[Rfam]
RNA sequence: CUGCAUGAUGGAAACGGUUAAUUCUUCCUUCCAAGGAGAAUGAGUAUUCCUUCAGUGCUAUAAAACGAGGACUUUUCAGAGCCACCUGCCUUGAAGCACAGGCUGCGUGGUAGCAUGUUUCUCCAACACAA
Numbered sequence: 001c002u003g004c005a006u007g008a009u010g011g012a013a014a015c016g017g018u019u020a021a022u023u024c025u026u027c028c029u030u031c032c033a034a035g036g037a038g039a040a041u042g043a044g045u046a047u048u049c050c051u052u053c054a055g056u057g058c059u060a061u062a063a064a065a066c067g068a069g070g071a072c073u074u075u076u077c078a079g080a081g082c083c084a085c086c087u088g089c090c091u092u093g094a095a096g097c098a099c100a101g102g103c104u105g106c107g108u109g110g111u112a113g114c115a116u117g118u119u120u121c122u123c124c125a126a127c128a129c130a131a
Stems, first nucleotide, its partner, number of pairs: 003058004018044002021041005069124003081111002085107001086105001088103004
Small nucleolar RNA U109: a 131-nucleotide RNA sequence from Ophiophagus hannah. Pairs were carried over by alignment from the consensus structure, which was predicted with WAR. The source organism's lineage runs through Eukaryota, Dipnotetrapodomorpha, Amniota, Sauropsida and Ophiophagus. The family's RNA type in Rfam is H/ACA-box small nucleolar RNA. A search with the family's covariance model found it, with a score of 61 bits. The family has 26 seed sequences and 1,405 matches in Rfam 15.1.